[Rfam]
RNA sequence: CUCCUUCGCAUGUGUUGCUGCUGUCGCAGCACCAUACCCGCAGCCAGGGUGUCCAGGCUGCCGUGGGUUCCGCCCACGCCACCCGCCAGUUCGCCCCGACAUCUCACCGGCGAACGCUGCCCACCGGGGCAUCGAUGC
Numbered sequence: 001c002u003c004c005u006u007c008g009c010a011u012g013u014g015u016u017g018c019u020g021c022u023g024u025c026g027c028a029g030c031a032c033c034a035u036a037c038c039c040g041c042a043g044c045c046a047g048g049g050u051g052u053c054c055a056g057g058c059u060g061c062c063g064u065g066g067g068u069u070c071c072g073c074c075c076a077c078g079c080c081a082c083c084c085g086c087c088a089g090u091u092c093g094c095c096c097c098g099a100c101a102u103c104u105c106a107c108c109g110g111c112g113a114a115c116g117c118u119g120c121c122c123a124c125c126g127g128g129g130c131a132u133c134g135a136u137g138c
Base pairs, nucleotide, nucleotide: 011036012035013034014033017030018029019028020027021026040061041060042059043058044057045056048082062078063077064076065075066074067073110138111137112136118131119130120129121128122127
A member of the RNA family "radC RNA" from Azoarcus taiwanensis, 138 nucleotides long. NCBI's taxonomy places the organism under Bacteria, Pseudomonadati, Pseudomonadota, Betaproteobacteria, Azoarcus.